[Rfam]
RNA sequence: GUGCUGGGAUGAAAAUAACUUUGUGCCGGAGACAUUUUGUCUUUGACGGUUACACAACCCUCUAAGAAGUUCUGAGCAC
Numbered sequence: 001g002u003g004c005u006g007g008g009a010u011g012a013a014a015a016u017a018a019c020u021u022u023g024u025g026c027c028g029g030a031g032a033c034a035u036u037u038u039g040u041c042u043u044u045g046a047c048g049g050u051u052a053c054a055c056a057a058c059c060c061u062c063u064a065a066g067a068a069g070u071u072c073u074g075a076g077c078a079c
Stems, first nucleotide, its partner, number of pairs: 001079004
The record is a 79-nucleotide sequence from Ipomoea nil, which matches "Small nucleolar RNA U61" in Rfam. The organism belongs to Ipomoea, within Eukaryota.